[Rfam]
RNA: DUF3800-XI RNA
RNA sequence: UGGGCUGGCAGAAAUGUCAAGGUCCAACCUAUCGGCGGGGAGACUCCCC
Numbered sequence: 001u002g003g004g005c006u007g008g009c010a011g012a013a014a015u016g017u018c019a020a021g022g023u024c025c026a027a028c029c030u031a032u033c034g035g036c037g038g039g040g041a042g043a044c045u046c047c048c049c
Base pairs, nucleotide, nucleotide: 001026002025003024004023005022006021007018008017009016010015